[Rfam]
RNA sequence: AUGCCUUAAACUAAUGAGUAAGGAAAAUAAUGAGCCUGGGUAGUCACAGGCUCCCUAGUUAAUCUAGGAAGAAUUUAUGCAAGGGUACAGGUUACCCCCACGGUGACCCAUCUACUUAGUGGGAUGCCUGGGUUGUUGUGAUCUGCCUG
Numbered sequence: 001a002u003g004c005c006u007u008a009a010a011c012u013a014a015u016g017a018g019u020a021a022g023g024a025a026a027a028u029a030a031u032g033a034g035c036c037u038g039g040g041u042a043g044u045c046a047c048a049g050g051c052u053c054c055c056u057a058g059u060u061a062a063u064c065u066a067g068g069a070a071g072a073a074u075u076u077a078u079g080c081a082a083g084g085g086u087a088c089a090g091g092u093u094a095c096c097c098c099c100a101c102g103g104u105g106a107c108c109c110a111u112c113u114a115c116u117u118a119g120u121g122g123g124a125u126g127c128c129u130g131g132g133u134u135g136u137u138g139u140g141a142u143c144u145g146c147c148u149g
Stems, first nucleotide, its partner, number of pairs: 004023005032053007054068005083148004089144007098132002102128004107123005
U12 minor spliceosomal RNA: a 149-nucleotide RNA from Mytilus edulis. By type it is a spliceosomal small nuclear RNA. The pairing is the family consensus, mapped onto this sequence. Gene Ontology terms of the family: U12 snRNP, mRNA branch site recognition and pre-mRNA branch point binding.